A member of the RNA family "Hsp90 cis-regulatory element" from Drosophila rhopaloa, 141 nucleotides long. The hsp90 gene product is involved in the Drosophila heat shock response and translation of the hsp90 mRNA is very inefficient under normal growth temperatures. When heat shock occurs translation becomes more efficient. This family represents a section of the Drosophila hsp90 mRNA 5' UTR that is required for increased translational efficiency during the heat shock response. The exact mechanism of action unknown.

Nucleotides: 141
Stems, first nucleotide, its partner, number of pairs: 002140005015044004020039003024035002050130004056124004063119005070112002074108001076104004080099007
Number, partner (000 for none) and nucleotide at each position: 001000a002140g003139u004138c005137u006136u007000a008000a009000a010000a011000a012000a013000a014000u015044u016043u017042c018041g019000u020039g021038c022037g023000g024035u025034g026000c027000g028000c029000g030000u031000c032000g033000u034025c035024a036000g037022c038021g039020u040000c041018u042017g043016a044015a045000a046000g047000u048000u049000u050130u051129g052128u053127g054000a055000a056124u057123u058122u059121c060000c061000c062000a063119u064118u065117c066116u067115g068000c069000a070112c071111a072000a073000c074108g075000c076104a077103a078102a079101g080099u081098a082097a083096a084095a085094a086093u087000u088000u089000u090000u091000a092000u093086a094085u095084u096083u097082u098081u099080a100000c101079c102078u103077u104076u105000a106000u107000u108074c109000u110000g111071u112070g113000a114000a115067u116066a117065g118064a119063a120000c121059g122058a123057a124056a125000a126000a127053c128052a129051u130050a131000c132000a133000u134000a135000c136006a137005a138004g139003g140002u141000g
The source organism's lineage runs through Eukaryota, Bilateria, Allotriocarida, Cyclorrhapha and Sophophora.
The family's consensus secondary structure is taken from published work.
A reference for the family is Ahmed and Duncan (2004), "Translational regulation of Hsp90 mRNA. AUG-proximal 5'-untranslated region elements essential for preferential heat shock translation", J Biol Chem.